[Rfam]
RNA sequence: AACGCACUUCGGGGUCGGUGAAAGUCCGAGCCGGCGGUCAUAGUCCGCGACCCGUGGUCGAGCUCUCGGGCUCGGCACCGGUUGAGCUGGUGGAACUCCAGCACCGACGGUGAGAGUCCGGAUGGGAGAAGUGCGGU
Numbered sequence: 001a002a003c004g005c006a007c008u009u010c011g012g013g014g015u016c017g018g019u020g021a022a023a024g025u026c027c028g029a030g031c032c033g034g035c036g037g038u039c040a041u042a043g044u045c046c047g048c049g050a051c052c053c054g055u056g057g058u059c060g061a062g063c064u065c066u067c068g069g070g071c072u073c074g075g076c077a078c079c080g081g082u083u084g085a086g087c088u089g090g091u092g093g094a095a096c097u098c099c100a101g102c103a104c105c106g107a108c109g110g111u112g113a114g115a116g117u118c119c120g121g122a123u124g125g126g127a128g129a130a131g132u133g134c135g136g137u
Base pairs, nucleotide, nucleotide: 003135004134005133006132007131008130009129010128016028017027018026030117031116032106033105034048035047036046037045043104044103052081053080086102087101088100089099090098108120109119110118
Shown here is a 137-nucleotide RNA from Yonghaparkia sp. Root332, a member of the family "FMN riboswitch aptamer (RFN element)". The family's consensus secondary structure is taken from published work. Lineage of the source: Bacteria > Bacillati > Actinomycetota > Actinomycetes > Microcella.